Description:
The record is a 151-nucleotide RNA from Streptococcus suis, which matches "MarS sRNA" in Rfam. Rfam's curators write: Interacts with the 5'UTR of the mga transcript (the multiple virulence gene regulator gene) and was renamed MarS for mag-activating regulatory sRNA. In MarS deletion strains expression of mga and several Mga-activated genes is reduced. This down-regulation of virulence factors leads to increased susceptibility of the deletion strain to phagocytosis, reduced adherence to human keratinocytes. However, the lack of MarS increased bacterial dissemination and tolerance towards oxidative stress. The match comes from Rfam's covariance-model search (87 bits). Gene Ontology terms of the family: mRNA 5'-UTR binding and positive regulation of translation, ncRNA-mediated.

[Rfam]
RNA sequence: CUUGGUUGACAAGUUGAGUUCUUUCCCACUCCCUUCGACGCUAGGGAGGUCUUCAUUUAAUUGAAACGCAGGAGCGGACCUUGAAUAGUUGUGUGAACCUUCUAUUCUCAUCGGAAACGAUGCCCUUGCCCACCUUUAUGGUGGGCUUUUU
Numbered sequence: 001c002u003u004g005g006u007u008g009a010c011a012a013g014u015u016g017a018g019u020u021c022u023u024u025c026c027c028a029c030u031c032c033c034u035u036c037g038a039c040g041c042u043a044g045g046g047a048g049g050u051c052u053u054c055a056u057u058u059a060a061u062u063g064a065a066a067c068g069c070a071g072g073a074g075c076g077g078a079c080c081u082u083g084a085a086u087a088g089u090u091g092u093g094u095g096a097a098c099c100u101u102c103u104a105u106u107c108u109c110a111u112c113g114g115a116a117a118c119g120a121u122g123c124c125c126u127u128g129c130c131c132a133c134c135u136u137u138a139u140g141g142u143g144g145g146c147u148u149u150u151u
Stems, first nucleotide, its partner, number of pairs: 011035003016031004043126004047081004067076003083107006109122004128146007